[Rfam]
RNA: 7SK RNA
Organism: Camarhynchus parvulus
RNA sequence: GGGUGAUCUGCCUGUGACAUCUAUCACCCCACUGCUCUCUAGGGCUGAUUCAGCUGAUCUGGCUGGCAAGGUGGGUGUCCCAAUGCUCCAUGUGUGUCCCUCCUCAAGCUGCACACUCAGUCACAGAGGAUGACAUGCCCACUAGAGAUGGUACCAUUCAUUCAUCAAGGGUACACGGCAGCUGCACUCCCCUGCCACAGCCUCCAAACCAGCUCAAGGUCCAUUUGUAGGAGAACAUAGGGUAGUCAAGCUUCCAAGACUGCAGACACAUCCAAGCGAGGUGCUCCAUGGGCCAGUUUUCCAUUGUUU
Numbered sequence: 001g002g003g004u005g006a007u008c009u010g011c012c013u014g015u016g017a018c019a020u021c022u023a024u025c026a027c028c029c030c031a032c033u034g035c036u037c038u039c040u041a042g043g044g045c046u047g048a049u050u051c052a053g054c055u056g057a058u059c060u061g062g063c064u065g066g067c068a069a070g071g072u073g074g075g076u077g078u079c080c081c082a083a084u085g086c087u088c089c090a091u092g093u094g095u096g097u098c099c100c101u102c103c104u105c106a107a108g109c110u111g112c113a114c115a116c117u118c119a120g121u122c123a124c125a126g127a128g129g130a131u132g133a134c135a136u137g138c139c140c141a142c143u144a145g146a147g148a149u150g151g152u153a154c155c156a157u158u159c160a161u162u163c164a165u166c167a168a169g170g171g172u173a174c175a176c177g178g179c180a181g182c183u184g185c186a187c188u189c190c191c192c193u194g195c196c197a198c199a200g201c202c203u204c205c206a207a208a209c210c211a212g213c214u215c216a217a218g219g220u221c222c223a224u225u226u227g228u229a230g231g232a233g234a235a236c237a238u239a240g241g242g243u244a245g246u247c248a249a250g251c252u253u254c255c256a257a258g259a260c261u262g263c264a265g266a267c268a269c270a271u272c273c274a275a276g277c278g279a280g281g282u283g284c285u286c287c288a289u290g291g292g293c294c295a296g297u298u299u300u301c302c303a304u305u306g307u308u309u
Stems, first nucleotide, its partner, number of pairs: 001089003010081001016079010027066002029062003034059001036057002039053002097151002100147003103120002106117001108116001128139002181251003187245002190242005202233004208228002211225002274309003278304001280302002283297003